[Rfam]
RNA sequence: ACGCGCGAAAGGAGGUGGUCCAGACAAUGCAUAGUUCUAGGACUCGCGAGGUGGCUGUCCGCUAGUCGCCGUUCCGCCUCGGAGCCGCCGCCCCUGGCGGCGGCACGCACGGUCGCGACGGUGACCGGCGAAAACCAGGCAGUUACCCGAUCCCCGGACCGGUGGACCCGUCCUGUCCACCCCCCGCCACCCGGCGGGAAGGCCCGGGGAUCGUUCUAU
Number, nucleotide and partner (000 for none) at each position: 001a000002c000003g000004c000005g000006c000007g000008a000009a000010a000011g000012g000013a000014g059015g058016u057017g056018g055019u054020c000021c000022a000023g000024a000025c000026a000027a000028u000029g000030c000031a000032u000033a000034g000035u000036u000037c000038u000039a000040g000041g000042a000043c000044u000045c000046g000047c000048g000049a000050g000051g000052u000053g000054g019055c018056u017057g016058u015059c014060c130061g129062c128063u127064a000065g125066u124067c000068g122069c121070c120071g119072u000073u000074c000075c117076g116077c115078c000079u000080c000081g000082g000083a000084g000085c000086c000087g000088c000089c000090g000091c000092c000093c000094c000095u000096g000097g000098c000099g000100g000101c000102g000103g000104c000105a000106c000107g000108c000109a000110c000111g000112g000113u000114c000115g077116c076117g075118a000119c071120g070121g069122u068123g000124a066125c065126c000127g063128g062129c061130g060131a000132a000133a000134a000135c000136c000137a000138g000139g000140c000141a000142g000143u000144u000145a000146c000147c000148c213149g212150a211151u210152c209153c208154c207155c206156g205157g204158a000159c202160c201161g000162g180163u179164g178165g177166a176167c175168c000169c000170g000171u000172c000173c000174u000175g167176u166177c165178c164179a163180c162181c000182c000183c000184c000185c000186g000187c000188c000189a000190c000191c000192c000193g000194g000195c000196g000197g000198g000199a000200a000201g160202g159203c000204c157205c156206g155207g154208g153209g152210a151211u150212c149213g148214u000215u000216c000217u000218a000219u000
RNA: Actinobacteria sRNA Ms_IGR-5
Organism: Actinomadura rudentiformis